Record summary:
Shown here is a 331-nucleotide RNA sequence from Aphelocoma coerulescens, a member of the family "7SK RNA". Clan: 7SK clan. From the family's description: 7SK was discovered as an abundant small nuclear RNA in the mid-70s but a possible function has only recently been suggested. Pairs were carried over by alignment from the consensus structure, which is taken from published work. For this family Rfam cites "Transcription: surprising role for an elusive small nuclear RNA" (Blencowe, Curr Biol, 2002).
[Rfam]
RNA sequence: GGAUGUGAGGGCAAUCUGGCUGUGAGAUCUGAUAUGCCAUUGAUUGCACAGGUUGAUUUGACUGGUCUGGCUAGCUUAGGUGGGUGUCCCCUUUCUUCCUCAGCAUUCCAUGUGUGCUCUUCCUGGAGCUGUGUGCUUGGUUAAUCAGGACAGCCUCCCCAACAGACAUGGUAUUGUUCACUGGUCAAGGGUGUGUGGUAGCUGUGCUCCCCUGCUGGAAGCUCUAAGUAAGCUCAAGGUCCAUUUGUAGAAGACUGCAGGGUAGUCAAACAUCCAGUACUAAAGACAGAACCAAAUGAGAAGCUCGAUGCAGCAGUCUGCCAGCAGGUUU
Numbered sequence: 001g002g003a004u005g006u007g008a009g010g011g012c013a014a015u016c017u018g019g020c021u022g023u024g025a026g027a028u029c030u031g032a033u034a035u036g037c038c039a040u041u042g043a044u045u046g047c048a049c050a051g052g053u054u055g056a057u058u059u060g061a062c063u064g065g066u067c068u069g070g071c072u073a074g075c076u077u078a079g080g081u082g083g084g085u086g087u088c089c090c091c092u093u094u095c096u097u098c099c100u101c102a103g104c105a106u107u108c109c110a111u112g113u114g115u116g117c118u119c120u121u122c123c124u125g126g127a128g129c130u131g132u133g134u135g136c137u138u139g140g141u142u143a144a145u146c147a148g149g150a151c152a153g154c155c156u157c158c159c160c161a162a163c164a165g166a167c168a169u170g171g172u173a174u175u176g177u178u179c180a181c182u183g184g185u186c187a188a189g190g191g192u193g194u195g196u197g198g199u200a201g202c203u204g205u206g207c208u209c210c211c212c213u214g215c216u217g218g219a220a221g222c223u224c225u226a227a228g229u230a231a232g233c234u235c236a237a238g239g240u241c242c243a244u245u246u247g248u249a250g251a252a253g254a255c256u257g258c259a260g261g262g263u264a265g266u267c268a269a270a271c272a273u274c275c276a277g278u279a280c281u282a283a284a285g286a287c288a289g290a291a292c293c294a295a296a297u298g299a300g301a302a303g304c305u306c307g308a309u310g311c312a313g314c315a316g317u318c319u320g321c322c323a324g325c326a327g328g329u330u331u
Stems, first nucleotide, its partner, number of pairs: 001109003006102006013094002018091002024088002027085005033079001035074001037070003042067004046062001117171002121166002123140004128136002141162002148158003201271001203269001207265002210262006222253002225250001228248005294331003